DUF3800-XI RNA: a 48-nucleotide RNA sequence.
RNA sequence: UGGGCUGGUCGAAAGACCCUGGUCCACCGAAUGGCGGGGAAUUUCCCC
Dot-bracket structure: ((((((((((....))))..))))))......................
The base pairs follow the family's consensus structure, which is taken from published work. From the family's description: Actinobacteria, Firmicutes, Proteobacteria, Spirochaetes (1 example). It is annotated as a small RNA.